[Rfam]
Shown here is a 132-nucleotide RNA sequence from Ovis aries, a member of the family "Small nucleolar RNA SNORA11". Gene Ontology terms of the family: nucleolus and RNA processing. U107 (SNORA11) is a member of the H/ACA class of snoRNAs that guide the sites of modification of uridines to pseudouridines. The family's consensus secondary structure was predicted with RNAalifold. The organism belongs to Ovis, within Eukaryota. Rfam classes the family as an H/ACA-box small nucleolar RNA. A search with the family's covariance model found it, with a score of 97 bits.
RNA sequence: GGGGUGCGCUCAGAGCCAGGGGCCUGAAGAAAUGGCUCAUCUCUUUACAACACACCCAGCAGGAACUUGGGUUCUUUGUGAAGAGGGGUGCAAAACUUGUGUGGCCUUGCUAUGAACAAAUACCCAACACAU
Numbered sequence: 001g002g003g004g005u006g007c008g009c010u011c012a013g014a015g016c017c018a019g020g021g022g023c024c025u026g027a028a029g030a031a032a033u034g035g036c037u038c039a040u041c042u043c044u045u046u047a048c049a050a051c052a053c054a055c056c057c058a059g060c061a062g063g064a065a066c067u068u069g070g071g072u073u074c075u076u077u078g079u080g081a082a083g084a085g086g087g088g089u090g091c092a093a094a095a096c097u098u099g100u101g102u103g104g105c106c107u108u109g110c111u112a113u114g115a116a117c118a119a120a121u122a123c124c125c126a127a128c129a130c131a132u
Stems, first nucleotide, its partner, number of pairs: 002057005008051001013046003019040001021038001022036003070125002073122001077118003083113001085107003089101005